RNA: Mammalian CPEB3 ribozyme
Nucleotides: 076
Stems, first nucleotide, its partner, number of pairs: 015044004021076007028040003049066006
Number, partner (000 for none) and nucleotide at each position: 001000a002000u003000a004000u005000a006000a007000g008000u009000u010000c011000c012000a013000a014000u015044g016043g017042c018041c019000a020000u021076a022075g023074c024073a025072g026071a027070a028040g029039u030038g031000c032000u033000c034000a035000u036000g037000u038030c039029g040028u041018g042017g043016c044015c045000c046000u047000g048000c049066u050065g051064g052063a053062u054061u055000c056000u057000a058000a059000c060000a061054a062053a063052u064051c065050u066049g067000c068000a069000a070027u071026u072025c073024u074023g075022c076021u